[Rfam]
RNA sequence: AACCCCCAGCUAGGCUGGGGGUUCCGUAAAGCUUACAGCUAUAAGUCAGUUAUAUAACCCCUUUCAAUUUGAUAAAAACGUCUUGUGGUCUGGCAACUGCAAGAGUUAAUUAAGAAUUGAAAG
Number, nucleotide and partner (000 for none) at each position: 001a023002a022003c021004c020005c019006c018007c017008a016009g015010c014011u000012a000013g000014g010015c009016u008017g007018g006019g005020g004021g003022u002023u001024c000025c000026g000027u000028a042029a000030a040031g039032c038033u037034u000035a000036c000037a033038g032039c031040u030041a000042u028043a000044a000045g000046u000047c000048a000049g000050u000051u000052a000053u000054a000055u000056a000057a000058c000059c000060c000061c123062u122063u121064u120065c119066a118067a117068u116069u115070u112071g111072a110073u109074a000075a000076a000077a107078a106079c105080g000081u104082c103083u102084u101085g100086u099087g098088g097089u096090c000091u000092g000093g000094c000095a000096a089097c088098u087099g086100c085101a084102a083103g082104a081105g079106u078107u077108a000109a073110u072111u071112a070113a000114g000115a069116a068117u067118u066119g065120a064121a063122a062123g061

Notes:
The family of this 123-nucleotide RNA from Vibrio campbellii is "STnc490 Hfq binding RNA". Taxonomically the source falls in Vibrio campbellii (Bacteria, Pseudomonadati, Gammaproteobacteria, Vibrio). It is one of the family's seed sequences. The family's RNA type in Rfam is small RNA.